[Rfam]
A member of the RNA family "Rhodo-rpoB RNA" from Tateyamaria sp. ANG-S1, 91 nucleotides long. Lineage of the source: Bacteria > Pseudomonadota > Alphaproteobacteria > Rhodobacterales > Tateyamaria. The match comes from Rfam's covariance-model search (48 bits). Rfam classes the family as a cis-regulatory element.
RNA sequence: UGAUCGGGCGCGCAUCUUGGGCGGGUGCGCAGGGAUAGAUCACCUUUUCGAUCUUUGAGGCUCGCGCCGGGAAUGCCCCUUCCGUUGCGCG
Numbered sequence: 001u002g003a004u005c006g007g008g009c010g011c012g013c014a015u016c017u018u019g020g021g022c023g024g025g026u027g028c029g030c031a032g033g034g035a036u037a038g039a040u041c042a043c044c045u046u047u048u049c050g051a052u053c054u055u056u057g058a059g060g061c062u063c064g065c066g067c068c069g070g071g072a073a074u075g076c077c078c079c080u081u082c083c084g085u086u087g088c089g090c091g
Base pairs, nucleotide, nucleotide: 001042002041003040004039005038010030011029012028013027014026015025016024063091064090065089066088067087068084069083070082071081072080